[Rfam]
The family of this 508-nucleotide RNA sequence from Streptomyces candidus is "Saccharopolyspora sRNA 350".
RNA sequence: UUCGCCGUGUAGCUCCAGUCGGCGUCGUCCUCGACGAGUGCCUGGUCGCCGAAGUACGAGCCGUCCGCGAGGGUGCCGAGCACCUGCUCCUCGCCGUACGGGCCGGCGCUGAGCUUCUCGACCCGGCCGUGCGCCAGCAGGUGGACGGUGUCCGCGCUGUCGCCCUGGCUGACGAUGACGUCCCCGGCGGCGAACUCGCGCUGCUGGCAGCGCUGCGCCAGUUCCCGGAGGGCGUCGUCGUCCUCGUACGUCCGCAGCGCGGGCAGUUCGCGCAGCUCGCCCGGGAUGACGGUGACCUCGCCGCCGGUCUGCACGAAGGUGAUGCGGCCGUCACCGACGGAGUAGCUCAGCCUCCGGUUGACCCGGUACGUACCGCCCUGGACCUGCACCCAGGGGAGCAUGCGCAGCAGCCACCGGGAGGUGAUCUCCUGCAUCUGCGGGGCGGACUUGGUGGUGGUCGCCAGGUUCCGCGCGGCGGCCGUACCGAGACUCUGCUGCGGCGGCGCCU
Numbered sequence: 001u002u003c004g005c006c007g008u009g010u011a012g013c014u015c016c017a018g019u020c021g022g023c024g025u026c027g028u029c030c031u032c033g034a035c036g037a038g039u040g041c042c043u044g045g046u047c048g049c050c051g052a053a054g055u056a057c058g059a060g061c062c063g064u065c066c067g068c069g070a071g072g073g074u075g076c077c078g079a080g081c082a083c084c085u086g087c088u089c090c091u092c093g094c095c096g097u098a099c100g101g102g103c104c105g106g107c108g109c110u111g112a113g114c115u116u117c118u119c120g121a122c123c124c125g126g127c128c129g130u131g132c133g134c135c136a137g138c139a140g141g142u143g144g145a146c147g148g149u150g151u152c153c154g155c156g157c158u159g160u161c162g163c164c165c166u167g168g169c170u171g172a173c174g175a176u177g178a179c180g181u182c183c184c185c186g187g188c189g190g191c192g193a194a195c196u197c198g199c200g201c202u203g204c205u206g207g208c209a210g211c212g213c214u215g216c217g218c219c220a221g222u223u224c225c226c227g228g229a230g231g232g233c234g235u236c237g238u239c240g241u242c243c244u245c246g247u248a249c250g251u252c253c254g255c256a257g258c259g260c261g262g263g264c265a266g267u268u269c270g271c272g273c274a275g276c277u278c279g280c281c282c283g284g285g286a287u288g289a290c291g292g293u294g295a296c297c298u299c300g301c302c303g304c305c306g307g308u309c310u311g312c313a314c315g316a317a318g319g320u321g322a323u324g325c326g327g328c329c330g331u332c333a334c335c336g337a338c339g340g341a342g343u344a345g346c347u348c349a350g351c352c353u354c355c356g357g358u359u360g361a362c363c364c365g366g367u368a369c370g371u372a373c374c375g376c377c378c379u380g381g382a383c384c385u386g387c388a389c390c391c392a393g394g395g396g397a398g399c400a401u402g403c404g405c406a407g408c409a410g411c412c413a414c415c416g417g418g419a420g421g422u423g424a425u426c427u428c429c430u431g432c433a434u435c436u437g438c439g440g441g442g443c444g445g446a447c448u449u450g451g452u453g454g455u456g457g458u459c460g461c462c463a464g465g466u467u468c469c470g471c472g473c474g475g476c477g478g479c480c481g482u483a484c485c486g487a488g489a490c491u492c493u494g495c496u497g498c499g500g501c502g503g504c505g506c507c508u
Stems, first nucleotide, its partner, number of pairs: 007389006014382003018328002021325001025322005031316002036312001038310001040308003045305001047303002050300003054233002057230001061228003065111001067109002075103001077102001080099001082097002118221001120219001122217001126213002130209001132206002135203003141197001143196002149192002155189005163177001166174002234296004240290003244286002249283002253279002256277003259271003329342001331340002355375003361371002391431007399423003403418001405416001407415001437476002440473001442471005447465006477507002480502003484499001487496002
The source organism's lineage runs through Bacteria, Bacillati, Actinomycetes, Streptomycetaceae and Streptomyces. The base pairs follow the family's consensus structure, which was predicted with RNAfold.